[Rfam]
RNA sequence: UCGGUCGUGGUUCGAAAUCCUCCCACGAAAAAAAACUAAGGAGCA
Numbered sequence: 001u002c003g004g005u006c007g008u009g010g011u012u013c014g015a016a017a018u019c020c021u022c023c024c025a026c027g028a029a030a031a032a033a034a035a036c037u038a039a040g041g042a043g044c045a
Stems, first nucleotide, its partner, number of pairs: 006027005016037001
This 45-nucleotide RNA sequence from Bacillus sp. SJS belongs to the Rfam family "PreQ1 (pre queuosine) riboswitch aptamer". A search with the family's covariance model found it, with a score of 55 bits. Rfam links the family to the GO term queuosine biosynthetic process. Rfam 15.1 lists 873 matches to the family in 692 species. Rfam's curators write: This family is a bacterial riboswitch that binds to the metabolite preQ1, an intermediate in the biosynthesis of the modified nucleoside queuosine from GTP. One example of this riboswitch is located in the leader of the Bacillus subtilis ykvJKLM (queCDEF) operon which encodes four genes necessary for queuosine production. PreQ1 binding to the riboswitch aptamer is thought to induce premature transcription termination within the leader to down-regulate expression of these genes.